[Rfam]
RNA sequence: CGGUAGGUGCACUCCCAGGCGGCCUCGCCGGAGACGAGCGCCCGCUCGCCGAAGUGUGCCCCGUCCGCGAGGAAUCCCAGGGCCGUCUCGUCGCCGUAGGGGCCGGUGCCGACCUUCUCGACGCGGCCGUGCGCGAGCAGGUACACCCGGUCGGCGACGUCGCCCGCGGUGGCGAUGACCUCGCCCGCGGCGAAGUCGCGCUGUUCACAGCGGUUGGCGAGCUCGCCGAGCACCGUCUCGUCGUCGAAGUCCCGCAGCGCGGGCAACUCACCCAGUUCGGCGGGGAUGACGGCGACCCGCUCGCCGGUCUGGACGAAGGUGAUCCGCCCGUCUCCCACCGAGUAGCUGAGGCGUCGGUUGACCCGGUACGUACCGCCCUGCACCUGGACCCACGGCAGCAUCCGCAGCAGCCAGCGGGAGGUGAUCUCCUGCAUCUGCGGCGCGGACUUGGUGGUGGUCGCCAAGUUUCGCGCGGCAGCUGUGCCGAGACUCUGUUGGGCGCGGUUCUC
Numbered sequence: 001c002g003g004u005a006g007g008u009g010c011a012c013u014c015c016c017a018g019g020c021g022g023c024c025u026c027g028c029c030g031g032a033g034a035c036g037a038g039c040g041c042c043c044g045c046u047c048g049c050c051g052a053a054g055u056g057u058g059c060c061c062c063g064u065c066c067g068c069g070a071g072g073a074a075u076c077c078c079a080g081g082g083c084c085g086u087c088u089c090g091u092c093g094c095c096g097u098a099g100g101g102g103c104c105g106g107u108g109c110c111g112a113c114c115u116u117c118u119c120g121a122c123g124c125g126g127c128c129g130u131g132c133g134c135g136a137g138c139a140g141g142u143a144c145a146c147c148c149g150g151u152c153g154g155c156g157a158c159g160u161c162g163c164c165c166g167c168g169g170u171g172g173c174g175a176u177g178a179c180c181u182c183g184c185c186c187g188c189g190g191c192g193a194a195g196u197c198g199c200g201c202u203g204u205u206c207a208c209a210g211c212g213g214u215u216g217g218c219g220a221g222c223u224c225g226c227c228g229a230g231c232a233c234c235g236u237c238u239c240g241u242c243g244u245c246g247a248a249g250u251c252c253c254g255c256a257g258c259g260c261g262g263g264c265a266a267c268u269c270a271c272c273c274a275g276u277u278c279g280g281c282g283g284g285g286a287u288g289a290c291g292g293c294g295a296c297c298c299g300c301u302c303g304c305c306g307g308u309c310u311g312g313a314c315g316a317a318g319g320u321g322a323u324c325c326g327c328c329c330g331u332c333u334c335c336c337a338c339c340g341a342g343u344a345g346c347u348g349a350g351g352c353g354u355c356g357g358u359u360g361a362c363c364c365g366g367u368a369c370g371u372a373c374c375g376c377c378c379u380g381c382a383c384c385u386g387g388a389c390c391c392a393c394g395g396c397a398g399c400a401u402c403c404g405c406a407g408c409a410g411c412c413a414g415c416g417g418g419a420g421g422u423g424a425u426c427u428c429c430u431g432c433a434u435c436u437g438c439g440g441c442g443c444g445g446a447c448u449u450g451g452u453g454g455u456g457g458u459c460g461c462c463a464a465g466u467u468u469c470g471c472g473c474g475g476c477a478g479c480u481g482u483g484c485c486g487a488g489a490c491u492c493u494g495u496u497g498g499g500c501g502c503g504g505u506u507c508u509c
Stems, first nucleotide, its partner, number of pairs: 006390003010386002016380001018328002021325002025322005035312001037310002040308003047303001048300002051297001054233002057230001059228001062225002065111001067109002077102002082097002085094002117221004122216001127212001130209001131206001133204003140197001143196002150191001159185001161183001163177001165174003234294004240290006250282001252280003256277003262269001329342001331340001351379001353377001355375003361371002391431002394428002397425001399423003403418001405416001407415001437476002440473001442471005447465006477508002480503003484499002487496002
The record is a 509-nucleotide sequence from Streptomyces hundungensis, which matches "Saccharopolyspora sRNA 350" in Rfam.
Its family is annotated with regulation of secondary metabolite biosynthetic process in the Gene Ontology.
Taxonomically the source falls in Streptomyces (Bacteria, Actinomycetota, Actinomycetes, Kitasatosporales).
Rfam 15.1 lists 1,170 matches to the family in 705 species.